RNA sequence: GGAUGUGAGGUUGAUCUGGCUGUGACAUCUCUCACUCCAUUGAUCGCCAGGGUUGAUUCGGCUGAUCUGGCUGGCUAGGUGGGUGUCCUUUUCCUCCCUCACCACUCCAUGUGCGUCCCUCCCAAAGCUGCACGCUUGGUCAAAGAGGGCAACCUUUGCCGAUAGAGGCGAACCGUCCAAGGGUAUACGGUAGCUGCGCUCCCCUGCUAGAGCCUCCAAACAAACUCAAGGUCCAUCUAUAGGAGACCAUAGGGUAGUCAAGCUUCCAAGUCUGCAGACACAUCCAGGCGAGGCACUGCAUUGGGCUGUCUGAGUAUUCUU
Numbered sequence: 001g002g003a004u005g006u007g008a009g010g011u012u013g014a015u016c017u018g019g020c021u022g023u024g025a026c027a028u029c030u031c032u033c034a035c036u037c038c039a040u041u042g043a044u045c046g047c048c049a050g051g052g053u054u055g056a057u058u059c060g061g062c063u064g065a066u067c068u069g070g071c072u073g074g075c076u077a078g079g080u081g082g083g084u085g086u087c088c089u090u091u092u093c094c095u096c097c098c099u100c101a102c103c104a105c106u107c108c109a110u111g112u113g114c115g116u117c118c119c120u121c122c123c124a125a126a127g128c129u130g131c132a133c134g135c136u137u138g139g140u141c142a143a144a145g146a147g148g149g150c151a152a153c154c155u156u157u158g159c160c161g162a163u164a165g166a167g168g169c170g171a172a173c174c175g176u177c178c179a180a181g182g183g184u185a186u187a188c189g190g191u192a193g194c195u196g197c198g199c200u201c202c203c204c205u206g207c208u209a210g211a212g213c214c215u216c217c218a219a220a221c222a223a224a225c226u227c228a229a230g231g232u233c234c235a236u237c238u239a240u241a242g243g244a245g246a247c248c249a250u251a252g253g254g255u256a257g258u259c260a261a262g263c264u265u266c267c268a269a270g271u272c273u274g275c276a277g278a279c280a281c282a283u284c285c286a287g288g289c290g291a292g293g294c295a296c297u298g299c300a301u302u303g304g305g306c307u308g309u310c311u312g313a314g315u316a317u318u319c320u321u
Stems, first nucleotide, its partner, number of pairs: 001108003005102006013093002018090002024087007032079002035074002037070003042067004046062003116171002118168004122139004127135002140162002148157002193263003199257002202254005214245004220240001222238001224236001286321003291315001294312001295309002298306002
This 321-nucleotide sequence from Cuculus canorus belongs to the Rfam family "7SK RNA". Rfam 15.1 lists 49,373 matches to the family in 668 species. Rfam describes the family as follows. 7SK was discovered as an abundant small nuclear RNA in the mid-70s but a possible function has only recently been suggested. Two independent studies have found that 7SK RNA binds the CDK9/cyclin T complex (known as elongation factor P-TEFb). P-TEFb activates transcription by phosphorylating the C-terminal domain of RNA polymerase II. This process is negatively regulated by the 7SK RNP. The secondary structure of 7SK RNA shown here was proposed by Wasserman and Steitz on the basis of chemical modification and enzymatic cleavage experiments. The organism belongs to Cuculus, within Eukaryota. The family's consensus secondary structure is taken from published work. Its Rfam clan is "7SK clan".